[Rfam]
Source information
Rfam assigns this 46-nucleotide RNA from Cebus imitator to the family "Histone 3' UTR stem-loop". The match comes from Rfam's covariance-model search (40 bits). Rfam classes the family as a cis-regulatory element.
RNA sequence: CCAAAGGCUCUUUUCAGAGCCACUCAAAAAAAAGAAAGAAAGAAAU
Numbered sequence: 001c002c003a004a005a006g007g008c009u010c011u012u013u014u015c016a017g018a019g020c021c022a023c024u025c026a027a028a029a030a031a032a033a034g035a036a037a038g039a040a041a042g043a044a045a046u
Stems, first nucleotide, its partner, number of pairs: 006021006